RNA sequence: UCCAUUGUCGUCCAACGGUUAGGAUAUCUGGCUUUCACCCAGUAAACUCGAGUUUGAUUCCCGACAACGGAA
Dot-bracket structure: (((.(((..((((........))))..((((.......)))).....(((.(.......).)))))).))).
The record is a 72-nucleotide RNA sequence from Cannabis sativa, which matches "tRNA" in Rfam. It is annotated as a transfer RNA. It scores 48 bits against the family's covariance model. Taxonomically the source falls in Cannabis (Eukaryota, Streptophyta, eudicotyledons, Rosales).